The record is an 81-nucleotide sequence from Orycteropus afer, which matches "Small nucleolar RNA SNORD115" in Rfam. The family's consensus secondary structure was predicted with PFOLD. Rfam 15.1 lists 3,387 matches to the family in 131 species.

RNA sequence: AGGUCAAUGAUGACACCUAAACCUGUCUUGAAGGGAGAUGAUGACAUAAAUAUCAUGCUGAAUAAGAUUAUACUGAUGAUU
Dot-bracket structure: ((.(((.((.............................................................)).))..).))